[Rfam]
RNA: U4 spliceosomal RNA
Organism: Mustela putorius
RNA sequence: AACUCUGUGCGGUGGCAGUAUUGUAGCCAAUGAGGUUUAUCUGAGGCACGAUUAUUACUAAUUGAAAAAUGAAGGAUGCUUCCAAGUUUUUGGCUUCUGCGUCCAAAAUGAUGGUAUUGUCAUUUGCUGCAA
Numbered sequence: 001a002a003c004u005c006u007g008u009g010c011g012g013u014g015g016c017a018g019u020a021u022u023g024u025a026g027c028c029a030a031u032g033a034g035g036u037u038u039a040u041c042u043g044a045g046g047c048a049c050g051a052u053u054a055u056u057a058c059u060a061a062u063u064g065a066a067a068a069a070u071g072a073a074g075g076a077u078g079c080u081u082c083c084a085a086g087u088u089u090u091u092g093g094c095u096u097c098u099g100c101g102u103c104c105a106a107a108a109u110g111a112u113g114g115u116a117u118u119g120u121c122a123u124u125u126g127c128u129g130c131a132a
Base pairs, nucleotide, nucleotide: 020052021051022050023049024048026047027046028045034042035041082114083113084112086109087108088107089106090105092103093100094099